[Rfam]
RNA sequence: CGGGUAGUAUCCUAUUAGGAACUGCACCUUGAUUUAGUAUUAUAAUAAACAUAUUCCGCUCAUAUCAUUGAAUGAGACGGGAAC
Numbered sequence: 001c002g003g004g005u006a007g008u009a010u011c012c013u014a015u016u017a018g019g020a021a022c023u024g025c026a027c028c029u030u031g032a033u034u035u036a037g038u039a040u041u042a043u044a045a046u047a048a049a050c051a052u053a054u055u056c057c058g059c060u061c062a063u064a065u066c067a068u069u070g071a072a073u074g075a076g077a078c079g080g081g082a083a084c
Stems, first nucleotide, its partner, number of pairs: 002028002004025005010020002056080003059076005065071002

pan motif: an 84-nucleotide RNA sequence from Clostridium frigidicarnis. The family's consensus secondary structure is taken from published work. By type it is a cis-regulatory element.